RNA sequence: GGGUGUUCUGAAGACCUGCUCUCUAGGCCACGCACGGAGGACGCGAGUUCCUCACGGGCCGCGGCCCGCCUAGGGGAAAGUCCCCGGACCGCCGGCAGAGAGUGCCGGGCGCUGGUGUCGGCGUCCCGCCCGCCCCGGCCGGCCCAGGGACCCCGGUCCGCGCCGCUGAGACGCCGCCGGCAGAGCGGGGGCCGCGGGGCGGGCUCUCGUCACGGGCACAGGCAUAGCAGGUAGCGCGGCGGCCGCGCCAACACAACGGGGCUCACUCUCAGGCCAUC
Numbered sequence: 001g002g003g004u005g006u007u008c009u010g011a012a013g014a015c016c017u018g019c020u021c022u023c024u025a026g027g028c029c030a031c032g033c034a035c036g037g038a039g040g041a042c043g044c045g046a047g048u049u050c051c052u053c054a055c056g057g058g059c060c061g062c063g064g065c066c067c068g069c070c071u072a073g074g075g076g077a078a079a080g081u082c083c084c085c086g087g088a089c090c091g092c093c094g095g096c097a098g099a100g101a102g103u104g105c106c107g108g109g110c111g112c113u114g115g116u117g118u119c120g121g122c123g124u125c126c127c128g129c130c131c132g133c134c135c136c137g138g139c140c141g142g143c144c145c146a147g148g149g150a151c152c153c154c155g156g157u158c159c160g161c162g163c164c165g166c167u168g169a170g171a172c173g174c175c176g177c178c179g180g181c182a183g184a185g186c187g188g189g190g191g192c193c194g195c196g197g198g199g200c201g202g203g204c205u206c207u208c209g210u211c212a213c214g215g216g217c218a219c220a221g222g223c224a225u226a227g228c229a230g231g232u233a234g235c236g237c238g239g240c241g242g243c244c245g246c247g248c249c250a251a252c253a254c255a256a257c258g259g260g261g262c263u264c265a266c267u268c269u270c271a272g273g274c275c276a277u278c
Base pairs, nucleotide, nucleotide: 002278003277004276005275007273008272009271010270011269014232015231016230017229018228019227022074023073024072025071026070027069028068037053038052039051040050041049079263080262082261083260084259085258094106095105096104097103107126108125109124110123111122112121113120114119128204129203130202132200133199134198135197136196137195153191154190163188164187165186166185173181174180175179234248235247236246237245238244239243
Shown here is a 278-nucleotide sequence from Furnarius figulus, a member of the family "RNase MRP".
The family's RNA type in Rfam is ribozyme.
RNase MRP is an enzymatically active ribonucleoprotein with two distinct roles in eukaryotes. In mitochondria it plays a direct role in the initiation of mitochondrial DNA replication. In the nucleus it is involved in precursor rRNA processing, where it cleaves the internal transcribed spacer 1 between 18S and 5.8S rRNAs. Despite distinct functions, RNase MRP has been shown to be evolutionarily related to RNase P. Like eukaryotic RNase P, RNase MRP is not catalytically active without associated protein subunits.